[Rfam]
RNA sequence: ACCGAUAAUGGCAAACCAGCCGAAAGGCUGGGACGCAAAGCUAAAGGGCCUAAUCGAAAGAAAGGCAGCCUAGCCACCGAAG
Numbered sequence: 001a002c003c004g005a006u007a008a009u010g011g012c013a014a015a016c017c018a019g020c021c022g023a024a025a026g027g028c029u030g031g032g033a034c035g036c037a038a039a040g041c042u043a044a045a046g047g048g049c050c051u052a053a054u055c056g057a058a059a060g061a062a063a064g065g066c067a068g069c070c071u072a073g074c075c076a077c078c079g080a081a082g
Stems, first nucleotide, its partner, number of pairs: 003079002011036002016031006034068001040074003045071003048066003

A member of the RNA family "c-di-GMP-I-GGC riboswitch aptamer" from Alkaliphilus pronyensis, 82 nucleotides long.
The literature on the family includes a 2017 paper in Proc Natl Acad Sci U S A by Weinberg et al., "Bioinformatic analysis of riboswitch structures uncovers variant classes with altered ligand specificity".
It scores 69 bits against the family's covariance model.
Its Rfam clan is "c-di-GMP_I riboswitch clan".
NCBI's taxonomy places the organism under Bacteria, Bacillota, Clostridia, Peptostreptococcales, Alkaliphilus.